Shown here is an 86-nucleotide sequence from Pelagomonas calceolata, a member of the family "Selenocysteine transfer RNA". A search with the family's covariance model found it, with a score of 62 bits. Its family is annotated with triplet codon-amino acid adaptor activity in the Gene Ontology. The family's consensus secondary structure is taken from published work. The organism belongs to Pelagomonas, within Eukaryota.
RNA sequence: GCAGCACUGAGCCUCGGUGGUCCGGGGGGUGGACUUCAGUUCCACAGCCGUUUCGCGACGGAGCGGUUCGAUUCCGUCUGGGCUGC
Numbered sequence: 001g002c003a004g005c006a007c008u009g010a011g012c013c014u015c016g017g018u019g020g021u022c023c024g025g026g027g028g029g030u031g032g033a034c035u036u037c038a039g040u041u042c043c044a045c046a047g048c049c050g051u052u053u054c055g056c057g058a059c060g061g062a063g064c065g066g067u068u069c070g071a072u073u074c075c076g077u078c079u080g081g082g083c084u085g086c
Stems, first nucleotide, its partner, number of pairs: 001086005007080001009078001012027006029045005048061005063077004